Shown here is a 75-nucleotide RNA from Sapayoa aenigma, a member of the family "Small nucleolar RNA SNORD101". The family's RNA type in Rfam is C/D-box small nucleolar RNA. Taxonomically the source falls in Sapayoa (Eukaryota, Opisthokonta, Sauropsida, Telluraves). On this family, see Vitali et al., Nucleic Acids Res 2003: "Identification of 13 novel human modification guide RNAs". Its Rfam clan is "SNORD101 clan".
RNA sequence: GUUUGGGUGAUGACUUUGCACUUUGUCGGAUACCCCUUCACUCGUCCUAUGAGUGAUACCUGCUGUCUGACAAAC
Numbered sequence: 001g002u003u004u005g006g007g008u009g010a011u012g013a014c015u016u017u018g019c020a021c022u023u024u025g026u027c028g029g030a031u032a033c034c035c036c037u038u039c040a041c042u043c044g045u046c047c048u049a050u051g052a053g054u055g056a057u058a059c060c061u062g063c064u065g066u067c068u069g070a071c072a073a074a075c
Base pairs, nucleotide, nucleotide: 001075002074003073004072005071